[Rfam]
Nucleotides: 085
Base pairs, nucleotide, nucleotide: 012037013036017032018031019030020029021028022027040079041078042077043076046074047073048070049069050068055064056063057062
Number, partner (000 for none) and nucleotide at each position: 001000a002000g003000c004000g005000g006000a007000a008000u009000c010000g011000g012037g013036c014000a015000a016000a017032c018031c019030u020029g021028u022027c023000g024000a025000a026000a027022g028021a029020c030019a031018g032017g033000g034000a035000c036013g037012c038000a039000a040079a041078g042077c043076u044000a045000a046074g047073g048070g049069u050068c051000u052000a053000a054000a055064a056063c057062a058000u059000u060000u061000u062057u063056g064055u065000u066000a067000u068050g069049g070048c071000a072000g073047c074046c075000g076043g077042g078041u079040u080000g081000c082000a083000a084000a085000g
This 85-nucleotide sequence from Propionispora vibrioides belongs to the Rfam family "c-di-GMP-I riboswitch aptamer". Rfam describes the family as follows. GEMM was predicted in a large-scale screen for bacterial structured RNA regulatory elements. Genes associated with GEMM are involved in a diverse array of functions, including chemotaxis regulation, signal transduction, secretion and chitin.